Rfam assigns this 336-nucleotide part of an RNA from Paremcibacter congregatus to the family "Bacterial large subunit ribosomal RNA".
RNA sequence: UGAGAGAACUAUGUUGAAGGAACUCGGCAAAUUGCAUCCGUAACUUCGGGAGAAGGAUGCCCCCUAUGAAGGCAACUUUUUAGGGGGGGCACAGACCAGGGGGUGGCGACUGUUUACUAAAAACACAGGGCUCUGCGAAGUCGCAAGACGACGUAUAGGGUCUGACGCCUGCCCGGUGCCGGAAGGUUAAAAGGAGGUGUGCAAGCACCGAAUUGAAGCCCCGGUAAACGGCGGCCGUAACUAUAACGGUCCUAAGGUAGCGAAAUUCCUUGUCGGGUAAGUUCCGACCUGCACGAAUGGCGUAACGACUUCCCCACUGUCUCCAACAUAGACUCA
Numbered sequence: 001u002g003a004g005a006g007a008a009c010u011a012u013g014u015u016g017a018a019g020g021a022a023c024u025c026g027g028c029a030a031a032u033u034g035c036a037u038c039c040g041u042a043a044c045u046u047c048g049g050g051a052g053a054a055g056g057a058u059g060c061c062c063c064c065u066a067u068g069a070a071g072g073c074a075a076c077u078u079u080u081u082a083g084g085g086g087g088g089g090c091a092c093a094g095a096c097c098a099g100g101g102g103g104u105g106g107c108g109a110c111u112g113u114u115u116a117c118u119a120a121a122a123a124c125a126c127a128g129g130g131c132u133c134u135g136c137g138a139a140g141u142c143g144c145a146a147g148a149c150g151a152c153g154u155a156u157a158g159g160g161u162c163u164g165a166c167g168c169c170u171g172c173c174c175g176g177u178g179c180c181g182g183a184a185g186g187u188u189a190a191a192a193g194g195a196g197g198u199g200u201g202c203a204a205g206c207a208c209c210g211a212a213u214u215g216a217a218g219c220c221c222c223g224g225u226a227a228a229c230g231g232c233g234g235c236c237g238u239a240a241c242u243a244u245a246a247c248g249g250u251c252c253u254a255a256g257g258u259a260g261c262g263a264a265a266u267u268c269c270u271u272g273u274c275g276g277g278u279a280a281g282u283u284c285c286g287a288c289c290u291g292c293a294c295g296a297a298u299g300g301c302g303u304a305a306c307g308a309c310u311u312c313c314c315c316a317c318u319g320u321c322u323c324c325a326a327c328a329u330a331g332a333c334u335c336a
Stems, first nucleotide, its partner, number of pairs: 001336004009331008018322003035059005044049001060087007068079004088092001100315004105310002107307002111125003128163008136153001140149003166302004171232003176229002178225005185220003191214002196209005233251006252256001262289001272288006
A search with the family's covariance model found it, with a score of 2768 bits.